[Rfam]
RNA sequence: AUAAUGAGACACCUGCCCAGCGGUAGUUCGAGCGUUGAAGCCGUCAUAGACAGUCAGCCAUAUUUUAUGACGGUGAGCCGUCGCAAGCAUCCGGGGCGGUGGUGGAGAACCCACCGGGGUGAAAUUCCCGUGG
Numbered sequence: 001a002u003a004a005u006g007a008g009a010c011a012c013c014u015g016c017c018c019a020g021c022g023g024u025a026g027u028u029c030g031a032g033c034g035u036u037g038a039a040g041c042c043g044u045c046a047u048a049g050a051c052a053g054u055c056a057g058c059c060a061u062a063u064u065u066u067a068u069g070a071c072g073g074u075g076a077g078c079c080g081u082c083g084c085a086a087g088c089a090u091c092c093g094g095g096g097c098g099g100u101g102g103u104g105g106a107g108a109a110c111c112c113a114c115c116g117g118g119g120u121g122a123a124a125u126u127c128c129c130g131u132g133g
Base pairs, nucleotide, nucleotide: 012130013099014098015097016096017095018094100116101115102114103113104112105111117129118128119127